[Rfam]
RNA sequence: CAGUAAUCCUGGUCAGUGCACUAGAUUACUA
Numbered sequence: 001c002a003g004u005a006a007u008c009c010u011g012g013u014c015a016g017u018g019c020a021c022u023a024g025a026u027u028a029c030u031a
Base pairs, nucleotide, nucleotide: 002030003029004028005027006026007025009024010023011022012021013020014018
RNA: Iron response element II
Organism: Calidris pygmaea